[Rfam]
RNA sequence: CCGGGCACAUGCGGACGCCCGAUUAGACGGCACCCGUCCAAGUCCGC
Number, nucleotide and partner (000 for none) at each position: 001c000002c021003g020004g019005g018006c017007a000008c000009a000010u000011g047012c046013g045014g044015a043016c000017g006018c005019c004020c003021g002022a000023u000024u000025a000026g038027a037028c036029g035030g034031c000032a000033c000034c030035c029036g028037u027038c026039c000040a000041a000042g000043u015044c014045c013046g012047c011
A member of the RNA family "chrB-b RNA", 47 nucleotides long. It is one of the family's seed sequences. The family's consensus secondary structure is taken from published work. Rfam classes the family as a cis-regulatory element.